[Rfam]
RNA sequence: CUUCGUUCUCGGGGCGGGGUGUAAUUCCCCACCGGCGGUAAGGUGCUUUAGUCAGUAGCAUUAAGCCCGCGAGCGCUUUAGUAGUCUUGUUACUUUCUAAAGGUCAGCAGAUCUGGUGUAACUCCAGAGCCGACGGUGAUAGUCCGGAUGAUAGAGAGCGUCA
Numbered sequence: 001c002u003u004c005g006u007u008c009u010c011g012g013g014g015c016g017g018g019g020u021g022u023a024a025u026u027c028c029c030c031a032c033c034g035g036c037g038g039u040a041a042g043g044u045g046c047u048u049u050a051g052u053c054a055g056u057a058g059c060a061u062u063a064a065g066c067c068c069g070c071g072a073g074c075g076c077u078u079u080a081g082u083a084g085u086c087u088u089g090u091u092a093c094u095u096u097c098u099a100a101a102g103g104u105c106a107g108c109a110g111a112u113c114u115g116g117u118g119u120a121a122c123u124c125c126a127g128a129g130c131c132g133a134c135g136g137u138g139a140u141a142g143u144c145c146g147g148a149u150g151a152u153a154g155a156g157a158g159c160g161u162c163a
Stems, first nucleotide, its partner, number of pairs: 004160007017029003031143002033132002035070004065130002073108002112128005134146003
Dot-bracket structure: ...(((((((......(((.......))).[[((((((..........................[[))))..((................................))...(((((.......)))))]])).(((.....]]))).......)))))))...

FMN riboswitch aptamer (RFN element): a 163-nucleotide RNA sequence from Oceanisphaera avium.
Rfam describes the family as follows. The RFN element is a highly conserved domain that is found frequently in the 5'-untranslated regions of prokaryotic mRNAs that encode for flavin mononucleotide (FMN) biosynthesis and transport proteins.
Lineage of the source: Bacteria > Pseudomonadati > Pseudomonadota > Aeromonadaceae > Oceanisphaera.
The family's consensus secondary structure is taken from published work.